[Rfam]
RNA sequence: AAUGUUACAAACAAAAGCACUGACUUGAGUUCAAUGCAGUAAGUGCUACUUGUUGGGGUAGUGUUG
Numbered sequence: 001a002a003u004g005u006u007a008c009a010a011a012c013a014a015a016a017g018c019a020c021u022g023a024c025u026u027g028a029g030u031u032c033a034a035u036g037c038a039g040u041a042a043g044u045g046c047u048a049c050u051u052g053u054u055g056g057g058g059u060a061g062u063g064u065u066g
Base pairs, nucleotide, nucleotide: 002059003058005056006055011053012052013051014050016047017046018045019044020043021042023040024039025038